[Rfam]
RNA sequence: GCGUGGGUCGGCCCGCUGCGCUGGAACCAGUGGGCUGGGGGAACCCGCCGUUCCAUUCCCCGCGGACGGCGGUCCGGUCCGGGAGGCGAGGGUGCCUCCCGGACUGCC
Numbered sequence: 001g002c003g004u005g006g007g008u009c010g011g012c013c014c015g016c017u018g019c020g021c022u023g024g025a026a027c028c029a030g031u032g033g034g035c036u037g038g039g040g041g042a043a044c045c046c047g048c049c050g051u052u053c054c055a056u057u058c059c060c061c062g063c064g065g066a067c068g069g070c071g072g073u074c075c076g077g078u079c080c081g082g083g084a085g086g087c088g089a090g091g092g093u094g095c096c097u098c099c100c101g102g103a104c105u106g107c108c
Base pairs, nucleotide, nucleotide: 001107002106006075007074009037010036011035012034013033014032015031016030017029018028045072046071047070048069049068050067051066052065053064076105077104078103079102080101081100082099083098084097085096086095087094088093
A member of the RNA family "Streptomyces RNA 4115" from Streptomyces taklimakanensis, 108 nucleotides long. The family's RNA type in Rfam is small RNA. It scores 90 bits against the family's covariance model. A reference for the family is Vockenhuber et al. (2011), "Deep sequencing-based identification of small non-coding RNAs in Streptomyces coelicolor", RNA Biol. Identified by deep sequencing of transcriptome at the end of exponential growth phase. Sequencing size consistent with notrthern blot size.